[Rfam]
RNA sequence: GCCGCGCCUAGUCCGACGGGACGAAAACCGGGACACCCUUACCUGGCUGGCGUGGCUACCUAACGGGGG
Numbered sequence: 001g002c003c004g005c006g007c008c009u010a011g012u013c014c015g016a017c018g019g020g021a022c023g024a025a026a027a028c029c030g031g032g033a034c035a036c037c038c039u040u041a042c043c044u045g046g047c048u049g050g051c052g053u054g055g056c057u058a059c060c061u062a063a064c065g066g067g068g069g
Stems, first nucleotide, its partner, number of pairs: 001056008011022004028046005036069005
The record is a 69-nucleotide RNA sequence from Propionivibrio dicarboxylicus, which matches "int-alpA RNA" in Rfam. It is annotated as a small RNA. The base pairs follow the family's consensus structure, which is taken from published work. Lineage of the source: Bacteria > Pseudomonadota > Betaproteobacteria > Rhodocyclales > Propionivibrio. From the family's description: Acidobacteria (1 example), Planctomycetes (1 example), Proteobacteria. The match comes from Rfam's covariance-model search (70 bits).